[Rfam]
RNA: Small nucleolar RNA SNORD82
RNA sequence: AGCACAAAUGAUGAUUGAUAUAGGGACUUAAUACUGAAACCUGAUGCUACAUUUGCAAUGUGCUGAUGUGC
Number, nucleotide and partner (000 for none) at each position: 001a000002g071003c070004a069005c068006a067007a000008a000009u000010g000011a000012u000013g000014a000015u000016u000017g000018a000019u000020a000021u000022a000023g000024g000025g000026a000027c000028u000029u000030a000031a000032u000033a000034c000035u000036g000037a000038a000039a000040c000041c000042u000043g000044a000045u000046g000047c000048u000049a000050c000051a000052u000053u000054u000055g000056c000057a000058a000059u000060g000061u000062g000063c000064u000065g000066a000067u006068g005069u004070g003071c002